[Rfam]
RNA sequence: CUCGGCUAUGGGGACAUGUACCCCCAGACAUGGUUGGGCAUGAUGGUGGGGGCUCUCUGUGCUCUGGCCGGGGUGCUGACCAUCGCUAUGCCUGUUCCGGUCAUUGUGAACAAU
Numbered sequence: 001c002u003c004g005g006c007u008a009u010g011g012g013g014a015c016a017u018g019u020a021c022c023c024c025c026a027g028a029c030a031u032g033g034u035u036g037g038g039c040a041u042g043a044u045g046g047u048g049g050g051g052g053c054u055c056u057c058u059g060u061g062c063u064c065u066g067g068c069c070g071g072g073g074u075g076c077u078g079a080c081c082a083u084c085g086c087u088a089u090g091c092c093u094g095u096u097c098c099g100g101u102c103a104u105u106g107u108g109a110a111c112a113a114u
Stems, first nucleotide, its partner, number of pairs: 002113001004111001007108005013102003018097001020095002037077004049063002
Dot-bracket structure: .(.(..(((((.(((..(.((...............((((........((...........))..........))))................)).)..))).)))))..).).

Rfam assigns this 114-nucleotide sequence from Denticeps clupeoides to the family "Potassium channel RNA editing signal". NCBI's taxonomy places the organism under Eukaryota, Metazoa, Teleostomi, Osteoglossocephalai, Denticeps. The family has 85 seed sequences and 14,095 matches in Rfam 15.1. By type it is a cis-regulatory element. Rfam's curators write: This family represents a group of sequences related to the human potassium channel Kv1.1 hairpin element which directs the efficient modification of an adenosine to inosine by an adenosine deaminase acting on RNA (ADAR). The ADAR modification causes an isoleucine/valine recoding event which lies in the ion-conducting pore of the potassium channel.